Shown here is a 303-nucleotide RNA sequence from Corynebacterium sp. ATCC 6931, a member of the family "5' ureB small RNA". The organism belongs to Corynebacterium, within Bacteria. Rfam links the family to the GO term negative regulation of gene expression. A search with the family's covariance model found it, with a score of 85 bits.
[Rfam]
RNA sequence: CCUCUUCGGCCUGCUGCGGUGCCAGGUAGUGGAUGUGCGUAUCGAUGCCACCGGCCGUCAGCAGUCGAUGCUCACCGGCAAUAACCUCGGUACCAGCACCAAUGACCAGGUCGGGGUGAACUCCGUCCUGCGUAUGCGGGUUGCCCGACUUACCAAUUGCGACAAUCUUGCCAUCUCGCAGACCCACGUCUGCCUUGACGACGCCCAGGAGAGCAUCAACAAUAAUCGCGCUCGUAAUAACCGUAUCGGGCGUGCCUUGUGCGCGAGUUGCCUGCGGAUCUUGGGCCAUGCCGUCACGGAUGG
Numbered sequence: 001c002c003u004c005u006u007c008g009g010c011c012u013g014c015u016g017c018g019g020u021g022c023c024a025g026g027u028a029g030u031g032g033a034u035g036u037g038c039g040u041a042u043c044g045a046u047g048c049c050a051c052c053g054g055c056c057g058u059c060a061g062c063a064g065u066c067g068a069u070g071c072u073c074a075c076c077g078g079c080a081a082u083a084a085c086c087u088c089g090g091u092a093c094c095a096g097c098a099c100c101a102a103u104g105a106c107c108a109g110g111u112c113g114g115g116g117u118g119a120a121c122u123c124c125g126u127c128c129u130g131c132g133u134a135u136g137c138g139g140g141u142u143g144c145c146c147g148a149c150u151u152a153c154c155a156a157u158u159g160c161g162a163c164a165a166u167c168u169u170g171c172c173a174u175c176u177c178g179c180a181g182a183c184c185c186a187c188g189u190c191u192g193c194c195u196u197g198a199c200g201a202c203g204c205c206c207a208g209g210a211g212a213g214c215a216u217c218a219a220c221a222a223u224a225a226u227c228g229c230g231c232u233c234g235u236a237a238u239a240a241c242c243g244u245a246u247c248g249g250g251c252g253u254g255c256c257u258u259g260u261g262c263g264c265g266a267g268u269u270g271c272c273u274g275c276g277g278a279u280c281u282u283g284g285g286c287c288a289u290g291c292c293g294u295c296a297c298g299g300a301u302g303g
Stems, first nucleotide, its partner, number of pairs: 001303002005298001008295002012164002015161003018076004030053003034050002037048004057069003077154002081150001085147001090144003094140001097136002104131001106130001108129003112125001113123002171284003176277006191230003196225001232266003237260001239258002243255003
For this family Rfam cites "Helicobacter pylori 5'ureB-sRNA, a cis-encoded antisense small RNA, negatively regulates ureAB expression by transcription termination" (Wen et al., J Bacteriol, 2013).